[Rfam]
RNA: Small nucleolar RNA snoR639/H1
RNA sequence: ACCCCACACUAAUUAAGCCGACCUUCUUGAUGUAUCGUUAUCAGAAGCGUGUGCUCGUUGUGGGAACAGCAAAGUCUGCGCAUUGUGUAUGGUUGUGUGAUUUUUUUAAAUUCAGCCAAAGAAUUAGCGCAGGACA
Numbered sequence: 001a002c003c004c005c006a007c008a009c010u011a012a013u014u015a016a017g018c019c020g021a022c023c024u025u026c027u028u029g030a031u032g033u034a035u036c037g038u039u040a041u042c043a044g045a046a047g048c049g050u051g052u053g054c055u056c057g058u059u060g061u062g063g064g065a066a067c068a069g070c071a072a073a074g075u076c077u078g079c080g081c082a083u084u085g086u087g088u089a090u091g092g093u094u095g096u097g098u099g100a101u102u103u104u105u106u107u108a109a110a111u112u113c114a115g116c117c118a119a120a121g122a123a124u125u126a127g128c129g130c131a132g133g134a135c136a
Stems, first nucleotide, its partner, number of pairs: 021052002024049001026047003078130004090118006099111001101109002